[Rfam]
RNA sequence: ACAUAGAAUCACGACUGGCGGAAAGCGGAGGUCGAUUAAUGUAUUGAUUUUCGUGGCAGGAUUACCUGCAGGGAGUGAUUGGUUAAGACAUGCCGACCGCCUGGGCGAUGCUU
Number, nucleotide and partner (000 for none) at each position: 001a000002c000003a084004u000005a000006g000007a080008a079009u078010c077011a076012c075013g000014a000015c072016u071017g101018g100019c099020g098021g097022a000023a000024a000025g000026c000027g000028g000029a000030g000031g000032u000033c000034g000035a000036u000037u000038a000039a000040u000041g000042u000043a000044u000045u000046g000047a000048u000049u000050u000051u000052c000053g000054u000055g000056g000057c068058a067059g066060g065061a000062u000063u000064a000065c060066c059067u058068g057069c000070a000071g016072g015073g000074a000075g012076u011077g010078a009079u008080u007081g000082g000083u000084u003085a000086a000087g000088a000089c000090a000091u107092g106093c105094c104095g000096a000097c021098c020099g019100c018101c017102u000103g000104g094105g093106c092107g091108a000109u000110g000111c000112u000113u000
Rfam assigns this 113-nucleotide RNA from Firmicutes bacterium CAG:882 to the family "ZMP/ZTP riboswitch aptamer (pfl RNA motif)". It scores 48 bits against the family's covariance model. The organism belongs to Bacillota, within Bacteria.